The family of this 106-nucleotide RNA is "mir-87 microRNA precursor family". The base pairs follow the family's consensus structure, which was predicted with RNAalifold. Rfam links the family to the GO terms miRNA-mediated post-transcriptional gene silencing and RISC complex. The family has 44 seed sequences and 420 matches in Rfam 15.1. A search with the family's covariance model found it, with a score of 54 bits. On this family, see Sempere et al., Dev Biol 2003: "Temporal regulation of microRNA expression in Drosophila melanogaster mediated by hormonal signals and broad-Complex gene activity".
[Rfam]
RNA sequence: UACUCUUACGCCUGAAAUUUGCUUUUGACCUGGUUAUUAAAAAAACGUUCGAUCCACUUCCGGUGAUAACGACUCAAGGUGAGCAAAGUUUCAGGUGUGUGAGUGA
Numbered sequence: 001u002a003c004u005c006u007u008a009c010g011c012c013u014g015a016a017a018u019u020u021g022c023u024u025u026u027g028a029c030c031u032g033g034u035u036a037u038u039a040a041a042a043a044a045a046c047g048u049u050c051g052a053u054c055c056a057c058u059u060c061c062g063g064u065g066a067u068a069a070c071g072a073c074u075c076a077a078g079g080u081g082a083g084c085a086a087a088g089u090u091u092c093a094g095g096u097g098u099g100u101g102a103g104u105g106a
Stems, first nucleotide, its partner, number of pairs: 002104004007099001009097007016089001018087003022083003029079003